[Rfam]
RNA: Small nucleolar RNA R16
RNA sequence: CAAGGCGUAUGAUGAAAAAUAUUAUCACUUAUACUACACACCGAAAUAAAUGUGGACGAAAUCUCCGCUUAUUAUCCUAUGCUUUG
Numbered sequence: 001c002a003a004g005g006c007g008u009a010u011g012a013u014g015a016a017a018a019a020u021a022u023u024a025u026c027a028c029u030u031a032u033a034c035u036a037c038a039c040a041c042c043g044a045a046a047u048a049a050a051u052g053u054g055g056a057c058g059a060a061a062u063c064u065c066c067g068c069u070u071a072u073u074a075u076c077c078u079a080u081g082c083u084u085u086g
Stems, first nucleotide, its partner, number of pairs: 003084007